[Rfam]
RNA sequence: GAAGUUCUUCAGGGCAGGGUGAAAAUCCCGACCGGCGGUAUAGUCCGCGAGCCGAAAGGCUGAUUUGGUGCAAUUCCAAAACCGACAGUAAAGUCUGGAUGUGAGAAGAAUGGA
Numbered sequence: 001g002a003a004g005u006u007c008u009u010c011a012g013g014g015c016a017g018g019g020u021g022a023a024a025a026u027c028c029c030g031a032c033c034g035g036c037g038g039u040a041u042a043g044u045c046c047g048c049g050a051g052c053c054g055a056a057a058g059g060c061u062g063a064u065u066u067g068g069u070g071c072a073a074u075u076c077c078a079a080a081a082c083c084g085a086c087a088g089u090a091a092a093g094u095c096u097g098g099a100u101g102u103g104a105g106a107a108g109a110a111u112g113g114a
Stems, first nucleotide, its partner, number of pairs: 004111007017029003031094002033084002035048004043082002051060003064080005086097003
Rfam assigns this 114-nucleotide RNA sequence from [Clostridium] polysaccharolyticum to the family "FMN riboswitch aptamer (RFN element)". The organism belongs to Lachnoclostridium, within Bacteria.